[Rfam]
RNA: purD RNA motif
RNA sequence: GUAGUUGUUCUUGUGUGCAUCGGUUUUGUUUGAAGCAUUAGCUUAGAAACUGAUCCUAAUAGACACUCGCUUUGCCACAUUAAGCCUUUGAGAACCAAGGCUAAUUGUGAAACGCUCACUCGGUU
Numbered sequence: 001g002u003a004g005u006u007g008u009u010c011u012u013g014u015g016u017g018c019a020u021c022g023g024u025u026u027u028g029u030u031u032g033a034a035g036c037a038u039u040a041g042c043u044u045a046g047a048a049a050c051u052g053a054u055c056c057u058a059a060u061a062g063a064c065a066c067u068c069g070c071u072u073u074g075c076c077a078c079a080u081u082a083a084g085c086c087u088u089u090g091a092g093a094a095c096c097a098a099g100g101c102u103a104a105u106u107g108u109g110a111a112a113c114g115c116u117c118a119c120u121c122g123g124u125u
Base pairs, nucleotide, nucleotide: 003067004066007064009063010062011061019054020053021052022051024049025048026047027046033044034043035042036041081104083102084101085100086099087098